[Rfam]
RNA sequence: CCUGCCGAAGUUUCCCUCAGGAUAGCAAAGACUUUUAAAUUAGUUUUAUGAGGUAAAGCAAAUGAUUAGAGGGCUUGGGAAUGUAAUGUUCUUAACCUAUUCUCAAACUUUAAAUAUGUAAGACGUACUUGUUUCUUAAUUGAACUUGUACAUGAAUAAAAGUCUUUAGUGGGCCACUUUUGGUAAGCAGAACUGGCGAUGUGGGAUGAACCAAACGCAGAGUUAAGGUGCCGGAAUAUACACUUAUCAGACACCACAAAAGGUGUUAGUUCAUCUAGACAGCCGCACGGUGGCCAUGGAAGUCGGAAUCCGCUAAGGAGUGUGUAACAACUCAACGGCCGAAUGAACUAGCCCUGAAAAUGGAUGGCGCUCAAGUGUAUUACCUAUACUCUGCCGUUAGUAUUCUUUUAAAGAUAUUAACGAGUAGGCAGGCGUAAAGGUUGCGUAGAAGCUUUGACAGUGAUGUUGAGUGGAGCAGCCUUUAGUGCAGAU
Number, nucleotide and partner (000 for none) at each position: 001c432002c431003u430004g429005c428006c427007g000008a000009a000010g000011u024012u000013u022014c021015c020016c000017u000018c000019a000020g015021g014022a013023u000024a011025g000026c000027a167028a166029a165030g164031a163032c162033u161034u000035u000036u000037a000038a000039a000040u000041u000042a000043g000044u123045u122046u121047u120048a119049u118050g117051a000052g000053g000054u000055a000056a111057a109058g108059c000060a000061a000062a000063u105064g104065a103066u000067u000068a100069g000070a098071g097072g096073g000074c000075u095076u094077g093078g092079g091080a090081a000082u088083g000084u000085a000086a000087u000088g082089u000090u080091c079092u078093u077094a076095a075096c072097c071098u070099a000100u068101u000102c000103u065104c064105a063106a000107a000108c058109u057110u000111u056112a000113a000114a000115u000116a000117u050118g049119u048120a047121a046122g045123a044124c000125g151126u150127a149128c148129u000130u000131g145132u144133u143134u000135c000136u000137u000138a000139a000140u000141u000142g000143a133144a132145c131146u000147u000148g128149u127150a126151c125152a000153u000154g000155a000156a000157u000158a000159a000160a000161a033162g032163u031164c030165u029166u028167u027168a000169g000170u000171g000172g000173g197174c196175c195176a194177c000178u192179u191180u190181u189182g188183g000184u000185a000186a000187g000188c182189a181190g180191a179192a178193c000194u176195g175196g174197c173198g000199a000200u000201g000202u213203g212204g211205g000206a000207u000208g000209a000210a000211c204212c203213a202214a000215a000216c000217g394218c393219a392220g391221a390222g000223u388224u000225a000226a000227g384228g383229u382230g000231c000232c000233g000234g000235a000236a381237u000238a380239u000240a000241c377242a376243c375244u000245u000246a000247u000248c000249a000250g000251a000252c000253a000254c000255c000256a000257c000258a000259a000260a000261a355262g354263g353264u000265g352266u351267u350268a349269g348270u347271u346272c345273a344274u343275c000276u000277a000278g000279a000280c000281a000282g339283c338284c337285g336286c000287a000288c312289g311290g310291u000292g000293g000294c306295c305296a000297u000298g000299g000300a000301a000302g000303u000304c000305g295306g294307a000308a000309u000310c290311c289312g288313c317314u000315a000316a000317g313318g333319a000320g000321u000322g331323u330324g000325u000326a000327a000328c000329a000330a323331c322332u000333c318334a000335a000336c285337g284338g283339c282340c000341g000342a000343a274344u273345g272346a271347a270348c269349u268350a267351g266352c265353c263354c262355u261356g000357a000358a000359a000360a000361u000362g000363g000364a000365u000366g000367g000368c000369g000370c000371u000372c000373a000374a000375g243376u242377g241378u000379a000380u238381u236382a229383c228384c227385u000386a000387u000388a223389c000390u221391c220392u219393g218394c217395c422396g421397u420398u419399a418400g417401u416402a415403u414404u000405c000406u000407u000408u000409u000410a000411a000412a000413g000414a403415u402416a401417u400418u399419a398420a397421c396422g395423a000424g000425u000426a000427g006428g005429c004430a003431g002432g001433c487434g000435u484436a483437a482438a481439g480440g479441u478442u477443g476444c475445g000446u000447a000448g000449a000450a000451g471452c470453u000454u000455u000456g000457a466458c465459a464460g000461u000462g000463a000464u459465g458466u457467u000468g000469a000470g452471u451472g000473g000474a000475g444476c443477a442478g441479c440480c439481u438482u437483u436484a435485g000486u000487g433488c000489a000490g000491a000492u000
Source information:
Shown here is a 492-nucleotide part of an RNA from Melampsora laricis-populina, a member of the family "Eukaryotic large subunit ribosomal RNA". Pairs were carried over by alignment from the consensus structure, which is taken from published work.